This 119-nucleotide RNA from Macleaya cordata belongs to the Rfam family "Small nucleolar RNA snoR104".
RNA sequence: AGGGAGGAUCCAAGAGCUGAGAUACUUCCUGAUACAAUCUUCCUACAGAAAUCAUCGGUAAUUUCGUGCUUGUAGUUCUGGUAGAAAGUUCUGCGAGACUCAAAUUUCCGGAUAUUAAA
Dot-bracket structure: (((.((.(((..........))).)).)))........................((............(((((((..((.......))..))))))).............)).......
Record summary
A reference for the family is Marker et al. (2002), "Experimental RNomics: identification of 140 candidates for small non-messenger RNAs in the plant Arabidopsis thaliana", Curr Biol. Taxonomically the source falls in Macleaya (Eukaryota, Streptophytina, Tracheophyta, Mesangiospermae).